Shown here is a 57-nucleotide sequence from Lancea tibetica, a member of the family "Plastid-psbA-4 3UTR RNA". Plastid psbA-4 is a non-coding RNA (ncRNA) present in plastids. It was identified in inverted repeat sequences in the 3 prime untranslate region (3UTR) of photosystem II quinone-binding protein (psbA). It is one of the family's seed sequences.
[Rfam]
RNA sequence: AAUAAAAGGAGCAAUAACCUCUUUCUUGGUUUAUCAAGAAGGUUAUUGCUCCUUUAU
Numbered sequence: 001a002a003u004a005a006a007a008g009g010a011g012c013a014a015u016a017a018c019c020u021c022u023u024u025c026u027u028g029g030u031u032u033a034u035c036a037a038g039a040a041g042g043u044u045a046u047u048g049c050u051c052c053u054u055u056a057u
Stems, first nucleotide, its partner, number of pairs: 005055012023040006